[Rfam]
RNA sequence: AAGCAGUGAGGAUUACAAGGGCUUGGUGUGAUGGACUGGGUUCAAUCACGACCGUCUGAUUGCAUUAGACGACAAUCCAGCGCAUCUGAGCUU
Numbered sequence: 001a002a003g004c005a006g007u008g009a010g011g012a013u014u015a016c017a018a019g020g021g022c023u024u025g026g027u028g029u030g031a032u033g034g035a036c037u038g039g040g041u042u043c044a045a046u047c048a049c050g051a052c053c054g055u056c057u058g059a060u061u062g063c064a065u066u067a068g069a070c071g072a073c074a075a076u077c078c079a080g081c082g083c084a085u086c087u088g089a090g091c092u093u
Stems, first nucleotide, its partner, number of pairs: 001093004